[Rfam]
RNA sequence: AAGUCGUAUGUGAGAAUUGGAGGGGACUAAACAAAUUACAACCUCUCUACCUCGAUGAGAAACUCCUAAUUUGUUUAGUUUCCUCCAAUAUCUCAUCUCCGACAU
Numbered sequence: 001a002a003g004u005c006g007u008a009u010g011u012g013a014g015a016a017u018u019g020g021a022g023g024g025g026a027c028u029a030a031a032c033a034a035a036u037u038a039c040a041a042c043c044u045c046u047c048u049a050c051c052u053c054g055a056u057g058a059g060a061a062a063c064u065c066c067u068a069a070u071u072u073g074u075u076u077a078g079u080u081u082c083c084u085c086c087a088a089u090a091u092c093u094c095a096u097c098u099c100c101g102a103c104a105u
Stems, first nucleotide, its partner, number of pairs: 004102003008098001011095004016089006023082008032073007
Record summary
A member of the RNA family "MIR2275 microRNA precursor family" from Prunus persica, 105 nucleotides long. Lineage of the source: Eukaryota > Euphyllophyta > Spermatophyta > Mesangiospermae > Prunus. The match comes from Rfam's covariance-model search (66 bits).